Shown here is a 69-nucleotide RNA sequence from Solanum commersonii, a member of the family "Plastid-clpP 5UTR RNA".
RNA sequence: AGUUAUGUUCGUAAAAUAAAGAGAAAGCAAAUUUAUUCUAUACUCGAUAAGUACCAAUACACAAUGAGG
Numbered sequence: 001a002g003u004u005a006u007g008u009u010c011g012u013a014a015a016a017u018a019a020a021g022a023g024a025a026a027g028c029a030a031a032u033u034u035a036u037u038c039u040a041u042a043c044u045c046g047a048u049a050a051g052u053a054c055c056a057a058u059a060c061a062c063a064a065u066g067a068g069g
Stems, first nucleotide, its partner, number of pairs: 003021002006018004043068003051060003
The literature on the family includes a 2023 paper in Plant Commun by Richter et al., "Retrograde signaling in plants: A critical review focusing on the GUN pathway and beyond". Rfam describes the family as follows. Plastid clpP is a non-coding RNA (ncRNA) recognised in plastids. It was found in the prime untranslated region (5UTR) of a protease complex subunit (clpP) in plastids, suggesting a posible cis-regulatory function.